[Rfam]
RNA sequence: CCUAUUGUUCAGCCAAUAGUAGCCUAGGGAUAGUGCAUCUGCGGUAACGCGGUGUGCGGAGCUUCCUGACAAUGUACCCCCACGCAAGUGGUUAAUCCUUGCUGCGAAGUGAAGGUUAAGACAAUUGCCAAUAGCAGGUGGUUGAGGGG
Numbered sequence: 001c002c003u004a005u006u007g008u009u010c011a012g013c014c015a016a017u018a019g020u021a022g023c024c025u026a027g028g029g030a031u032a033g034u035g036c037a038u039c040u041g042c043g044g045u046a047a048c049g050c051g052g053u054g055u056g057c058g059g060a061g062c063u064u065c066c067u068g069a070c071a072a073u074g075u076a077c078c079c080c081c082a083c084g085c086a087a088g089u090g091g092u093u094a095a096u097c098c099u100u101g102c103u104g105c106g107a108a109g110u111g112a113a114g115g116u117u118a119a120g121a122c123a124a125u126u127g128c129c130a131a132u133a134g135c136a137g138g139u140g141g142u143u144g145a146g147g148g149g
Stems, first nucleotide, its partner, number of pairs: 002019006027067004033057007041050003080091004092119004102109002124142006
RNA: Group II catalytic intron D1-D4-7
Organism: Vibrio cholerae